[Rfam]
This 77-nucleotide RNA sequence from Theobroma umbraticum belongs to the Rfam family "Small nucleolar RNA R21". The base pairs follow the family's consensus structure, which was predicted with PFOLD. NCBI's taxonomy places the organism under Eukaryota, Tracheophyta, Euphyllophyta, eudicotyledons, Theobroma. Gene Ontology terms of the family: RNA processing and nucleolus.

RNA sequence: CAUCCCUGUGAAGAGUAAUCAUGUAAAUUAAAAGUAGUGGGCUGAUUUUGAUUGAUGAUUAAUGCAUCUGAGGGAUG
Dot-bracket structure: ((((((.................................................................))))))